[Rfam]
This 162-nucleotide RNA sequence belongs to the Rfam family "Clostridiales-1 RNA". Pairs were carried over by alignment from the consensus structure, which is taken from published work. It is one of the family's seed sequences.
RNA sequence: AUGAAAGUCCCGGACGGCAGCCGCGAAUGAGCUAUGCUUGCAUGAGCGAAUUCACGGGUAUCGGACGGGCAAGCCGGUAUGAGCAAGGAGCGCGAUAGCGCGGAUUGCGAAUGCUGGCGACGAUUGCGUGAGCACCAAAGGUGCGGAGCAAUCGGCUUUCAU
Numbered sequence: 001a002u003g004a005a006a007g008u009c010c011c012g013g014a015c016g017g018c019a020g021c022c023g024c025g026a027a028u029g030a031g032c033u034a035u036g037c038u039u040g041c042a043u044g045a046g047c048g049a050a051u052u053c054a055c056g057g058g059u060a061u062c063g064g065a066c067g068g069g070c071a072a073g074c075c076g077g078u079a080u081g082a083g084c085a086a087g088g089a090g091c092g093c094g095a096u097a098g099c100g101c102g103g104a105u106u107g108c109g110a111a112u113g114c115u116g117g118c119g120a121c122g123a124u125u126g127c128g129u130g131a132g133c134a135c136c137a138a139a140g141g142u143g144c145g146g147a148g149c150a151a152u153c154g155g156c157u158u159u160c161a162u
Stems, first nucleotide, its partner, number of pairs: 002161007009069004016062002019059001021057003025053004031047001033044004073118008083108004090101004121154007132144004